Background:
The record is a 53-nucleotide sequence from Rhodobacteraceae bacterium HTCC2083, which matches "COG3860 RNA" in Rfam. It is one of the family's seed sequences.
RNA sequence: CGGUCGGCAGAACCGAGGCGUCGCUGCUCUGAGACAGAGUGCUAAACCUGCCA
Numbered sequence: 001c002g003g004u005c006g007g008c009a010g011a012a013c014c015g016a017g018g019c020g021u022c023g024c025u026g027c028u029c030u031g032a033g034a035c036a037g038a039g040u041g042c043u044a045a046a047c048c049u050g051c052c053a
Base pairs, nucleotide, nucleotide: 001015002014003013004012027039028038029037030036
It is annotated as a cis-regulatory element.